Rfam assigns this 130-nucleotide RNA from Cervus elaphus to the family "Small nucleolar RNA SNORA31". The literature on the family includes a 2001 paper in EMBO J by Huttenhofer et al., "RNomics: an experimental approach that identifies 201 candidates for novel, small, non-messenger RNAs in mouse". Gene Ontology terms of the family: RNA processing and nucleolus. From the family's description: ACA31 (SNORA31) belongs to the H/ACA class of snoRNAs which are thought to guide the sites of modification of uridines to pseudouridines. ACA31 is predicted to guide the pseudouridylation of U3713 in 28S rRNA and U218 in 18S rRNA. This family includes the mouse homologue snoMBI-161. Taxonomically the source falls in Cervus elaphus (Eukaryota, Opisthokonta, Craniata, Cervus). The family's RNA type in Rfam is H/ACA-box small nucleolar RNA.
RNA sequence: AUGCAUCUAUUUGACAGACCUGAAGCAGUUACUGUCUGCUAAGGUUUCCACUACAGAUGCAAGAAAAACAUCCUCGCGCUUUCUGCCUGUCUUGAUUGUGGCAGCCCAGAUUGAAUGGGGGAAUACAGGG
Number, nucleotide and partner (000 for none) at each position: 001a000002u061003g060004c059005a058006u057007c056008u055009a000010u000011u000012u050013g049014a000015c000016a047017g046018a045019c044020c043021u000022g000023a000024a040025g039026c038027a037028g036029u000030u000031a000032c000033u000034g000035u000036c028037u027038g026039c025040u024041a000042a000043g020044g019045u018046u017047u016048c000049c013050a012051c000052u000053a000054c000055a008056g007057a006058u005059g004060c003061a002062a000063g000064a000065a000066a000067a000068a000069c000070a000071u122072c121073c120074u119075c118076g000077c000078g000079c113080u000081u000082u110083c109084u108085g107086c000087c104088u103089g102090u101091c100092u000093u000094g000095a000096u000097u000098g000099u000100g091101g090102c089103a088104g087105c000106c000107c085108a084109g083110a082111u000112u000113g079114a000115a000116u000117g000118g075119g074120g073121g072122a071123a000124u000125a000126c000127a000128g000129g000130g000